[Rfam]
RNA: MIR408 microRNA precursor family
Organism: Vitis vinifera
RNA sequence: AAAUGGAGACAAGAGGAAGACGGGGACGAGGUAGUGCAUGGAUGGAACUAUUAACAGAAGAAUGUUAAGCUGUUUUUGCUCUACCCAUGCACUGCCUCUUCCCUGGCUCUGUCUCUCCUUUACUC
Numbered sequence: 001a002a003a004u005g006g007a008g009a010c011a012a013g014a015g016g017a018a019g020a021c022g023g024g025g026a027c028g029a030g031g032u033a034g035u036g037c038a039u040g041g042a043u044g045g046a047a048c049u050a051u052u053a054a055c056a057g058a059a060g061a062a063u064g065u066u067a068a069g070c071u072g073u074u075u076u077u078g079c080u081c082u083a084c085c086c087a088u089g090c091a092c093u094g095c096c097u098c099u100u101c102c103c104u105g106g107c108u109c110u111g112u113c114u115c116u117c118c119u120u121u122a123c124u125c
Stems, first nucleotide, its partner, number of pairs: 018108002021105006029097006036090006045081002